[Rfam]
RNA sequence: GGGUCAUUUCAAAGAGAGCUUUUGGAGCUGUGAGACCAAUAGUUCUUAACGCUGUGACCAAAUAUUAAAAUUCUCCUCGGAAUGCUAUAGUCACUCAAUAAUGCUGUGCUUUUUCCUGAGGAAGAUAUAAGA
Numbered sequence: 001g002g003g004u005c006a007u008u009u010c011a012a013a014g015a016g017a018g019c020u021u022u023u024g025g026a027g028c029u030g031u032g033a034g035a036c037c038a039a040u041a042g043u044u045c046u047u048a049a050c051g052c053u054g055u056g057a058c059c060a061a062a063u064a065u066u067a068a069a070a071u072u073c074u075c076c077u078c079g080g081a082a083u084g085c086u087a088u089a090g091u092c093a094c095u096c097a098a099u100a101a102u103g104c105u106g107u108g109c110u111u112u113u114u115c116c117u118g119a120g121g122a123a124g125a126u127a128u129a130a131g132a
Stems, first nucleotide, its partner, number of pairs: 002059006014047007023039001027036001072125003076121001079115004087107004092103002095100001
Dot-bracket structure: .((((((......(((((((..(...(........)..).)))))))......))))))............(((.(..((((....((((.((.(....).))))))....)))).....).))).......
Overview:
Shown here is a 132-nucleotide RNA from Chrysochloris asiatica, a member of the family "Small nucleolar RNA SNORA25". It scores 105 bits against the family's covariance model. From the family's description: ACA25 is a member of the H/ACA class of snoRNA that guide the sites of modification of uridines to pseudouridines. Taxonomically the source falls in Chrysochloris (Eukaryota, Metazoa, Amniota, Afrotheria). The family's consensus secondary structure was predicted with RNAfold.